tRNA: a 74-nucleotide sequence from Thiospirochaeta perfilievii.
RNA sequence: GCACCCUUAGCUCAGCUGGAUAGAGCGCCGGACUUCGAAUCCGUAGGUCGUAGGUUCGAAUCCUACAGGGUGUA
Number, nucleotide and partner (000 for none) at each position: 001g073002c072003a071004c070005c069006c068007u067008u000009a000010g026011c025012u024013c023014a000015g000016c000017u000018g000019g000020a000021u000022a000023g013024a012025g011026c010027g000028c000029c043030g042031g041032a040033c000034u000035u000036c000037g000038a000039a000040u032041c031042c030043g029044u000045a000046g000047g000048u000049c000050g066051u065052a064053g063054g062055u000056u000057c000058g000059a000060a000061u000062c054063c053064u052065a051066c050067a007068g006069g005070g004071u003072g002073u001074a000

By type it is a transfer RNA. Rfam links the family to the GO term triplet codon-amino acid adaptor activity. The family's consensus secondary structure is taken from published work. Lineage of the source: Bacteria > Pseudomonadati > Spirochaetota > Spirochaetaceae > Thiospirochaeta.